The family of this 103-nucleotide RNA sequence from Gossypium aridum is "Small nucleolar RNA snoR99". The literature on the family includes a 2002 paper in Curr Biol by Marker et al., "Experimental RNomics: identification of 140 candidates for small non-messenger RNAs in the plant Arabidopsis thaliana". Its family is annotated with nucleolus and RNA processing in the Gene Ontology. It scores 82 bits against the family's covariance model.
[Rfam]
RNA sequence: GUGCUUAAGGGAUGAAGAAGUCCCUUAAACUCAAUAUCCAUCUAAAUCACUUUGUCAGUGGCCUUUUUUGGUGGCAUAUUGAUCAUUACAGGAUGGAAAAUUC
Numbered sequence: 001g002u003g004c005u006u007a008a009g010g011g012a013u014g015a016a017g018a019a020g021u022c023c024c025u026u027a028a029a030c031u032c033a034a035u036a037u038c039c040a041u042c043u044a045a046a047u048c049a050c051u052u053u054g055u056c057a058g059u060g061g062c063c064u065u066u067u068u069u070g071g072u073g074g075c076a077u078a079u080u081g082a083u084c085a086u087u088a089c090a091g092g093a094u095g096g097a098a099a100a101u102u103c
Stems, first nucleotide, its partner, number of pairs: 037097006054083007